A member of the RNA family "UnaL2 LINE 3' element" from Megalops atlanticus, 54 nucleotides long. It is annotated as a cis-regulatory element. The organism belongs to Megalops, within Eukaryota.
RNA sequence: AGGUGCAACCCAUGUAAGUCGCUCUGGAUAAGAGCGUCUGCUAAAUGCUAAUAA
Number, nucleotide and partner (000 for none) at each position: 001a000002g000003g000004u000005g000006c000007a000008a000009c000010c000011c000012a000013u043014g041015u040016a039017a000018g000019u000020c036021g035022c034023u033024c032025u031026g000027g000028a000029u000030a000031a025032g024033a023034g022035c021036g020037u000038c000039u016040g015041c014042u000043a013044a000045a000046u000047g000048c000049u000050a000051a000052u000053a000054a000